Shown here is a 72-nucleotide sequence from Alligator sinensis, a member of the family "Mammalian CPEB3 ribozyme". The literature on the family includes a 2006 paper in Science by Salehi-Ashtiani et al., "A genomewide search for ribozymes reveals an HDV-like sequence in the human CPEB3 gene". Lineage of the source: Eukaryota > Vertebrata > Sauropsida > Sauria > Alligator. The match comes from Rfam's covariance-model search (36 bits).
[Rfam]
RNA sequence: AGAGUUAAAGACCAUGGCAAAAGCACUGGUAGUGCAGCCCUGUCAGAUGCCAAUGAAUCUGUGAAUUCUGCU
Numbered sequence: 001a002g003a004g005u006u007a008a009a010g011a012c013c014a015u016g017g018c019a020a021a022a023g024c025a026c027u028g029g030u031a032g033u034g035c036a037g038c039c040c041u042g043u044c045a046g047a048u049g050c051c052a053a054u055g056a057a058u059c060u061g062u063g064a065a066u067u068c069u070g071c072u
Stems, first nucleotide, its partner, number of pairs: 010039001012037001016072004021067002023035003044061005050055001